This 76-nucleotide sequence from Carlito syrichta belongs to the Rfam family "Small nucleolar RNA SNORD74". The family's consensus secondary structure was predicted with PFOLD. The literature on the family includes a 2002 paper in Mol Cell Biol by Galardi et al., "Purified box C/D snoRNPs are able to reproduce site-specific 2'-O-methylation of target RNA in vitro". A search with the family's covariance model found it, with a score of 83 bits. Its Rfam clan is "SNORD74 clan". By type it is a C/D-box small nucleolar RNA.
RNA sequence: GUGCCCCGCUUGUGAUGAAGCCUGUGUUGGUAGGGACAUCUGAGACUGCUGAUGAAUGCCAGCACUCUGAUGGCGC
Number, nucleotide and partner (000 for none) at each position: 001g076002u075003g074004c073005c072006c000007c000008g000009c000010u000011u000012g000013u000014g000015a000016u000017g000018a000019a000020g000021c000022c000023u000024g000025u000026g000027u000028u000029g000030g000031u000032a000033g000034g000035g000036a000037c000038a000039u000040c000041u000042g000043a000044g000045a000046c000047u000048g000049c000050u000051g000052a000053u000054g000055a000056a000057u000058g000059c000060c000061a000062g000063c000064a000065c000066u000067c000068u000069g000070a000071u000072g005073g004074c003075g002076c001